[Rfam]
RNA sequence: AAGUGAUAAAGGCAAACUUUUCGAAAGGGAAGGACGCAAAGCCGUGAGUCUAAGGUGCUAUCGUACUAUGAUCGUCAGGUUGCCAUA
Numbered sequence: 001a002a003g004u005g006a007u008a009a010a011g012g013c014a015a016a017c018u019u020u021u022c023g024a025a026a027g028g029g030a031a032g033g034a035c036g037c038a039a040a041g042c043c044g045u046g047a048g049u050c051u052a053a054g055g056u057g058c059u060a061u062c063g064u065a066c067u068a069u070g071a072u073c074g075u076c077a078g079g080u081u082g083c084c085a086u087a
Base pairs, nucleotide, nucleotide: 012037013036017032018031019030020029021028022027040081041080042079043078045077046076047075048072049071050070055066056065057064058063